[Rfam]
Nucleotides: 079
Stems, first nucleotide, its partner, number of pairs: 004074017022056007
Number, partner (000 for none) and nucleotide at each position: 001000g002000c003000u004074g005073c006072u007071g008070c009069u010068u011067g012066c013065a014064c015063c016062c017061a018060c019059u020058g021000c022056u023055g024054g025053c026052a027051c028050c029000c030000a031000g032000a033000a034000c035000c036000a037000g038000c039000c040000c041000a042000g043000a044000u045000c046000g047000c048000u049000u050028g051027g052026u053025g054024c055023c056022g057000u058020c059019a060018g061017u062016g063015g064014g065013u066012g067011c068010a069009a070008g071007c072006a073005g074004c075000g076000g077000c078000u079000g